[Rfam]
RNA sequence: GAAAGUAAAGGAGCAAUACGAAAUCUCUUGAUAUAACAAGAGAUUUCGUAUUGCUCCUUUACUA
Numbered sequence: 001g002a003a004a005g006u007a008a009a010g011g012a013g014c015a016a017u018a019c020g021a022a023a024u025c026u027c028u029u030g031a032u033a034u035a036a037c038a039a040g041a042g043a044u045u046u047c048g049u050a051u052u053g054c055u056c057c058u059u060u061a062c063u064a
Stems, first nucleotide, its partner, number of pairs: 007060012022045002025042006
The family of this 64-nucleotide RNA from Dasiphora fruticosa is "Plastid-psbA-4 3UTR RNA".
Rfam's curators put it in the seed alignment.
From the family's description: Plastid psbA-4 is a non-coding RNA (ncRNA) present in plastids. It was identified in inverted repeat sequences in the 3 prime untranslate region (3UTR) of photosystem II quinone-binding protein (psbA).
The family's consensus secondary structure was predicted with LocARNA.
Its Rfam clan is "Plastid-psbA 3UTR RNA clan".
It is annotated as a cis-regulatory element.